[Rfam]
RNA sequence: UGGUGCCCAACUGUGGGACACCUGGUACGGAGGAUUCAAUGACGGAACCAUCCGAGAGAGCCAGCAAGAGAGAAAGACAAAAGAGAAAGUAAAAGAGACCCGCGCCGCAGUUGCCUGCUGCGACAUCUGAACCUUGGUAAGCGGACGGCACCUCCUUUCUCUUUCCCUUCAGCAAUGGGACAGGCAUUAAGUGAACAUGAGAUAUUUAUAGAAAGUUUGAGUAACGCAUUAAAGGCACGAGGAGUAAAGGUUAAAAUUAAGGAUUUGUGUCAAUAUUUUGAAUAUGUUAAACAAGUUU
Number, nucleotide and partner (000 for none) at each position: 001u000002g000003g000004u000005g000006c033007c032008c000009a000010a000011c000012u000013g028014u027015g026016g000017g000018a000019c000020a000021c000022c000023u000024g000025g000026u015027a014028c013029g000030g000031a000032g007033g006034a000035u000036u000037c000038a000039a051040u050041g049042a000043c000044g000045g000046a000047a000048c000049c041050a040051u039052c000053c000054g000055a000056g000057a000058g000059a000060g000061c000062c000063a000064g000065c000066a000067a000068g000069a000070g000071a000072g000073a000074a000075a000076g000077a000078c000079a000080a000081a000082a000083g000084a000085g000086a000087a000088a000089g138090u137091a000092a000093a000094a134095g133096a000097g000098a000099c000100c000101c129102g127103c000104g000105c000106c122107g121108c120109a119110g118111u000112u000113g000114c000115c000116u000117g000118c110119u109120g108121c107122g106123a000124c000125a000126u000127c102128u000129g101130a000131a000132c000133c095134u094135u000136g000137g090138u089139a000140a000141g000142c000143g000144g000145a000146c183147g000148g181149c000150a000151c179152c178153u000154c000155c000156u000157u000158u000159c000160u000161c000162u000163u000164u000165c000166c000167c000168u000169u000170c000171a000172g000173c000174a000175a000176u000177g000178g152179g151180a000181c148182a000183g146184g000185c000186a000187u000188u231189a230190a229191g227192u226193g225194a000195a000196c000197a000198u000199g000200a000201g000202a000203u000204a000205u000206u000207u000208a000209u000210a000211g000212a000213a000214a000215g000216u000217u000218u000219g000220a000221g000222u000223a000224a000225c193226g192227c191228a000229u190230u189231a188232a000233a000234g000235g000236c000237a000238c280239g279240a278241g277242g276243a000244g274245u273246a000247a000248a266249g265250g264251u263252u262253a000254a000255a000256a000257u000258u000259a000260a000261g000262g252263a251264u250265u249266u248267g000268u000269g000270u000271c000272a000273a245274u244275a000276u242277u241278u240279u239280g238281a000282a000283u000284a000285u000286g000287u000288u000289a000290a000291a000292c000293a000294a000295g000296u000297u000298u000
RNA: Mason-Pfizer monkey virus packaging signal
Organism: Octodon degus